The record is a 56-nucleotide sequence, which matches "Streptococcus sRNA SpF59 (ldcC RNA)" in Rfam. For this family Rfam cites "Control of virulence by small RNAs in Streptococcus pneumoniae" (Mann et al., PLoS Pathog, 2012). The base pairs follow the family's consensus structure, which was predicted with mfold. The sequence is in the family's curated seed alignment.
RNA sequence: CGACCGCCGUUUUGCAAAACGGCCAAGGCCACACGGACAGCCGGGUCGAAUGCCGA
Number, nucleotide and partner (000 for none) at each position: 001c048002g047003a046004c045005c044006g023007c022008c021009g020010u019011u018012u000013u000014g000015c000016a000017a000018a011019a010020c009021g008022g007023c006024c000025a000026a000027g000028g000029c000030c000031a000032c000033a000034c000035g000036g000037a000038c000039a000040g000041c000042c000043g000044g005045g004046u003047c002048g001049a000050a000051u000052g000053c000054c000055g000056a000